RNA sequence: AGCAGGCAUAUAGGCCACAGCUAAAGUGCUCACAGUGUGGCCCUGUUAGAUGCUAAUGAAUCUGUGAAUUCUGCU
Numbered sequence: 001a002g003c004a005g006g007c008a009u010a011u012a013g014g015c016c017a018c019a020g021c022u023a024a025a026g027u028g029c030u031c032a033c034a035g036u037g038u039g040g041c042c043c044u045g046u047u048a049g050a051u052g053c054u055a056a057u058g059a060a061u062c063u064g065u066g067a068a069u070u071c072u073g074c075u
Base pairs, nucleotide, nucleotide: 013042014041015040016039019075020074021073024070025069026038027037028036047064048063049062050061051060053058
Shown here is a 75-nucleotide sequence from Crocodylus porosus, a member of the family "Mammalian CPEB3 ribozyme".
Taxonomically the source falls in Crocodylus (Eukaryota, Metazoa, Crocodylia, Longirostres).
The mammalian CPEB3 ribozyme is a self cleaving RNA located in the second intron of the CPEB3 gene which belongs to a family of genes regulating messenger RNA polyadenylation.